This 65-nucleotide sequence from Flavimarina sp. Hel_I_48 belongs to the Rfam family "S15-Flavobacteria ribosomal protein leader". Pairs were carried over by alignment from the consensus structure, which is taken from published work. The family's RNA type in Rfam is cis-regulatory leader. On this family, see Eckert and Weinberg, BMC Microbiol 2020: "Discovery of 20 novel ribosomal leader candidates in bacteria and archaea".
RNA sequence: UAUCUUUGCAGCCUUAACGGAAAAACCGUUAUGUACAUAAAAAUCAUUUAAAUAAUAUUGGAAUG
Number, nucleotide and partner (000 for none) at each position: 001u000002a000003u000004c000005u000006u000007u000008g000009c000010a000011g000012c000013c000014u000015u031016a030017a029018c028019g027020g000021a000022a000023a000024a000025a000026c000027c019028g018029u017030u016031a015032u000033g000034u000035a000036c000037a000038u000039a000040a000041a000042a000043a000044u000045c000046a000047u000048u000049u000050a000051a000052a000053u000054a000055a000056u000057a000058u000059u000060g000061g000062a000063a000064u000065g000